[Rfam]
RNA sequence: UUUAUAUAUUUGAGGCAUCAAUGAGAACAAUAAGAAAAAAUACAUGGUGGUGGUACAACUUACGUCAAAUGUCGUGAGCUAGCAUCCUAUUAGUGUAUUUUGAAAAAUAAUACGAAAGGCUUGUC
Numbered sequence: 001u002u003u004a005u006a007u008a009u010u011u012g013a014g015g016c017a018u019c020a021a022u023g024a025g026a027a028c029a030a031u032a033a034g035a036a037a038a039a040a041u042a043c044a045u046g047g048u049g050g051u052g053g054u055a056c057a058a059c060u061u062a063c064g065u066c067a068a069a070u071g072u073c074g075u076g077a078g079c080u081a082g083c084a085u086c087c088u089a090u091u092a093g094u095g096u097a098u099u100u101u102g103a104a105a106a107a108u109a110a111u112a113c114g115a116a117a118g119g120c121u122u123g124u125c
Base pairs, nucleotide, nucleotide: 037101038100040098041097042096043095044094045093046091047090049088050087052085061078062072063071064070